A member of the RNA family "tRNA" from Streptacidiphilus pinicola, 84 nucleotides long. Gene Ontology term of the family: triplet codon-amino acid adaptor activity. It is annotated as a transfer RNA. Pairs were carried over by alignment from the consensus structure, which is taken from published work. NCBI's taxonomy places the organism under Bacteria, Actinomycetes, Kitasatosporales, Streptomycetaceae, Streptacidiphilus. From the family's description: Transfer RNA (tRNA) molecules are approximately 80 nucleotides in length. The match comes from Rfam's covariance-model search (50 bits).
RNA sequence: GCGGCCGUGGAGAAAUUGGCAGCCUCGCUGGCUUUAGGUGCCAGUGCGCGUGAGCGCGUGAGGGUUCGAGUCCCUCCGGCCGCA
Numbered sequence: 001g002c003g004g005c006c007g008u009g010g011a012g013a014a015a016u017u018g019g020c021a022g023c024c025u026c027g028c029u030g031g032c033u034u035u036a037g038g039u040g041c042c043a044g045u046g047c048g049c050g051u052g053a054g055c056g057c058g059u060g061a062g063g064g065u066u067c068g069a070g071u072c073c074c075u076c077c078g079g080c081c082g083c084a
Base pairs, nucleotide, nucleotide: 001083002082003081004080005079006078007077010026011025012024028044029043030042031041032040060076061075062074063073064072